[Rfam]
RNA sequence: CAGCCCCAUUUUCCCAUGCCCUAUUCCUCUUUAAAGUUAAGUCUCAAAGAGGUAUAUGCAUAGGAAAAAGGAACAG
Dot-bracket structure: .........(((((.((((..(((.(((((((.............))))))).))).)))).))))).........

mir-202 microRNA precursor family: a 76-nucleotide RNA from Gadus morhua. Its family is annotated with RISC complex and miRNA-mediated post-transcriptional gene silencing in the Gene Ontology.